The record is a 97-nucleotide RNA from Molossus molossus, which matches "G-CSF factor stem-loop destabilising element (SLDE)" in Rfam. Gene Ontology term of the family: nuclear-transcribed mRNA poly(A) tail shortening. Lineage of the source: Eukaryota > Euteleostomi > Mammalia > Theria > Molossus. Pairs were carried over by alignment from the consensus structure, which is taken from published work. This family represents the granulocyte colony-stimulating factor stem-loop destabilising element (G-CSF SLDE). G-CSF is secreted by fibroblasts and endothelial cells in response to the inflammatory mediators interleukin-1 (IL-1) and tumour necrosis factor alpha and by activated macrophages. The synthesis of G-CSF is regulated both transcriptionally and through control of mRNA stability. The family has 16 seed sequences and 132 matches in Rfam 15.1. The literature on the family includes a 2002 paper in Mol Cell Biol by Putland et al., "RNA destabilization by the granulocyte colony-stimulating factor stem-loop destabilizing element involves a single stem-loop that promotes deadenylation".
RNA sequence: CCAAGGGUACCCAACCUGGGGCCCUUGGAAGCAUCAGAAAAUCUCCCGUGUGGGAGACAAAACAGCCCUGUUUAAUAUUUAAACAGCAAUGUUCCCU
Numbered sequence: 001c002c003a004a005g006g007g008u009a010c011c012c013a014a015c016c017u018g019g020g021g022c023c024c025u026u027g028g029a030a031g032c033a034u035c036a037g038a039a040a041a042u043c044u045c046c047c048g049u050g051u052g053g054g055a056g057a058c059a060a061a062a063c064a065g066c067c068c069u070g071u072u073u074a075a076u077a078u079u080u081a082a083a084c085a086g087c088a089a090u091g092u093u094c095c096c097u
Stems, first nucleotide, its partner, number of pairs: 003026006010020003034062001042057006068086008